The record is a 110-nucleotide RNA sequence from Oryza meridionalis, which matches "mir-399 microRNA precursor family" in Rfam.
From the family's description: mir-399 was identified in both Arabidopsis thaliana and Oryza sativa computationally and was later experimentally verified. mir-399 is thought to target mRNAs coding for a phosphatase transporter. The mature sequence is excised from the 3' arm of the hairpin.
Taxonomically the source falls in Oryza (Eukaryota, Embryophyta, Mesangiospermae, Oryzeae).
A reference for the family is Jones-Rhoades and Bartel (2004), "Computational Identification of Plant MicroRNAs and Their Targets, Including a Stress-Induced miRNA", Mol Cell.
[Rfam]
RNA sequence: CGGCGAAUUACAGGGCGGUUUCUCCUUUGGCACGUACGGAGGCAAGGCAUACGGUGAAAAAUCUCUAGCUAACCAUGCGUGCCAAAGGAGAAUUGCCCUGCGAUUCACCA
Numbered sequence: 001c002g003g004c005g006a007a008u009u010a011c012a013g014g015g016c017g018g019u020u021u022c023u024c025c026u027u028u029g030g031c032a033c034g035u036a037c038g039g040a041g042g043c044a045a046g047g048c049a050u051a052c053g054g055u056g057a058a059a060a061a062u063c064u065c066u067a068g069c070u071a072a073c074c075a076u077g078c079g080u081g082c083c084a085a086a087g088g089a090g091a092a093u094u095g096c097c098c099u100g101c102g103a104u105u106c107a108c109c110a
Stems, first nucleotide, its partner, number of pairs: 005106005011100009022090004028084009